[Rfam]
RNA sequence: CAGUCCGCCACGUGGGACGGCACCACCGGGGCGGGUGCCACGCGGUUACCCUGACCGCGUGCACCCUUGACACAGCGAGGGUGCAAAGCCGACAGCCGUCGCAUCCCAGGGAGCACCGCCAUG
Dot-bracket structure: ...........................................................((((.((((........)))).))))..((.(((....))))).....................
Streptomyces-metH RNA: a 123-nucleotide RNA sequence from Streptomyces roseus. The match comes from Rfam's covariance-model search (104 bits).